[Rfam]
RNA sequence: CCGUUUGCUCCAUACUUCUUUACAUUCCAUACGUCUUAAGCACUAUGGGAAGUAAGGAAGCACGGAACUCUCGA
Numbered sequence: 001c002c003g004u005u006u007g008c009u010c011c012a013u014a015c016u017u018c019u020u021u022a023c024a025u026u027c028c029a030u031a032c033g034u035c036u037u038a039a040g041c042a043c044u045a046u047g048g049g050a051a052g053u054a055a056g057g058a059a060g061c062a063c064g065g066a067a068c069u070c071u072c073g074a
Base pairs, nucleotide, nucleotide: 007068009066010065011064013062015060016059017058018057019056020055021054022053023052025050027048028047029046030045031044
The record is a 74-nucleotide sequence from Photinus pyralis, which matches "mir-1 microRNA precursor family" in Rfam. It scores 51 bits against the family's covariance model. From the family's description: This family represents the microRNA (miRNA) mir-1 family. miRNAs are transcribed as ~70nt precursors (modelled here) and subsequently processed by the Dicer enzyme to give a ~22nt product. In this case the mature sequence comes from the 3' arm of the precursor. The extents of the hairpin precursors are not generally known and are estimated based on hairpin prediction. The products are thought to have regulatory roles through complementarity to mRNA. The involvement of Dicer in miRNA processing suggests a relationship with the phenomenon of RNA interference. miRNAs are numbered based on the sequence of the mature RNA. This family also contains the mir-206 from human, which appears to be related to mir-1. Rfam links the family to the GO terms miRNA-mediated post-transcriptional gene silencing and RISC complex.